[Rfam]
RNA sequence: GACCGAUAAAGGCAAAGCUAUGGAAACAUAGUGACGCAAAGCUUAAGGGGCUUCAUUUACAAUAUUGUAAAUAUGCCAGCCAGCUACCGAA
Numbered sequence: 001g002a003c004c005g006a007u008a009a010a011g012g013c014a015a016a017g018c019u020a021u022g023g024a025a026a027c028a029u030a031g032u033g034a035c036g037c038a039a040a041g042c043u044u045a046a047g048g049g050g051c052u053u054c055a056u057u058u059a060c061a062a063u064a065u066u067g068u069a070a071a072u073a074u075g076c077c078a079g080c081c082a083g084c085u086a087c088c089g090a091a
Stems, first nucleotide, its partner, number of pairs: 012037002017032006040085004047081002049077003056071006